[Rfam]
RNA: Alphaproteobacterial ar14
Organism: Labrenzia sp. THAF82
RNA sequence: AGAAUCGCGUCCCGAGGCAUCCUCCUCCCAGCCAACGGACGUGUGACACGCAGGGCAUCCUCCUCCCAGCCCUGUCACGUCGAAACGACGCCCGCCAGCACCUCCUCCCGCUGGCGGGCGUUCGUU
Numbered sequence: 001a002g003a004a005u006c007g008c009g010u011c012c013c014g015a016g017g018c019a020u021c022c023u024c025c026u027c028c029c030a031g032c033c034a035a036c037g038g039a040c041g042u043g044u045g046a047c048a049c050g051c052a053g054g055g056c057a058u059c060c061u062c063c064u065c066c067c068a069g070c071c072c073u074g075u076c077a078c079g080u081c082g083a084a085a086c087g088a089c090g091c092c093c094g095c096c097a098g099c100a101c102c103u104c105c106u107c108c109c110g111c112u113g114g115c116g117g118g119c120g121u122u123c124g125u126u
Stems, first nucleotide, its partner, number of pairs: 007042003011038002016033002047079001050076001051074006088121009098111002